[Rfam]
RNA sequence: GCAAAAUAUUUAUAAUAUCUUCGUAUAACCCCAAUAAUAUGGUUUGGGGGUCUCUACCAGGAAUCCAAAAUUCCUGAUUACGAAGAAGAUACCUUAUGGG
Dot-bracket structure: .................((((((((...((((((.........))))))........(((((((.....)))))))..))))))))..............
Numbered sequence: 001g002c003a004a005a006a007u008a009u010u011u012a013u014a015a016u017a018u019c020u021u022c023g024u025a026u027a028a029c030c031c032c033a034a035u036a037a038u039a040u041g042g043u044u045u046g047g048g049g050g051u052c053u054c055u056a057c058c059a060g061g062a063a064u065c066c067a068a069a070a071u072u073c074c075u076g077a078u079u080a081c082g083a084a085g086a087a088g089a090u091a092c093c094u095u096a097u098g099g100g
Stems, first nucleotide, its partner, number of pairs: 018086008029049006058076007
Rfam assigns this 100-nucleotide RNA from Clostridium argentinense to the family "Purine riboswitch aptamer".
Gene Ontology term of the family: purine nucleobase biosynthetic process.
The literature on the family includes a 2003 paper in Cell by Mandal et al., "Riboswitches Control Fundamental Biochemical Pathways in Bacillus subtilis and Other Bacteria".
The organism belongs to Clostridium argentinense, within Bacteria.
The match comes from Rfam's covariance-model search (82 bits).